A member of the RNA family "FMN riboswitch aptamer (RFN element)" from Paenibacillus sp. FSL H7-0331, 167 nucleotides long. The family has 146 seed sequences and 6,230 matches in Rfam 15.1. NCBI's taxonomy places the organism under Bacteria, Bacillati, Bacillota, Caryophanales, Paenibacillus. The base pairs follow the family's consensus structure, which is taken from published work.
[Rfam]
RNA sequence: GUUUUCCUUCGGGGCGGGGUGAAAUUCCCCACCGGCGGUGAUAUGAGACGCUUAACAGCGUUUUGUUCAGUCCGUGACCCGUGGGCUUCAGCUUUAUUGCUGCAGUCACCGGUGGACUUGGUGAAAUUCCGAGACCGACAGUAUAGUCUGGAUGGGAGAAGGGAAAA
Numbered sequence: 001g002u003u004u005u006c007c008u009u010c011g012g013g014g015c016g017g018g019g020u021g022a023a024a025u026u027c028c029c030c031a032c033c034g035g036c037g038g039u040g041a042u043a044u045g046a047g048a049c050g051c052u053u054a055a056c057a058g059c060g061u062u063u064u065g066u067u068c069a070g071u072c073c074g075u076g077a078c079c080c081g082u083g084g085g086c087u088u089c090a091g092c093u094u095u096a097u098u099g100c101u102g103c104a105g106u107c108a109c110c111g112g113u114g115g116a117c118u119u120g121g122u123g124a125a126a127u128u129c130c131g132a133g134a135c136c137g138a139c140a141g142u143a144u145a146g147u148c149u150g151g152a153u154g155g156g157a158g159a160a161g162g163g164a165a166a167a
Base pairs, nucleotide, nucleotide: 003165004164005163006162007161008160009159010158017029018028019027031147032146033137034136035075036074037073038072070135071134079112080111117133118132119131120130121129139150140149141148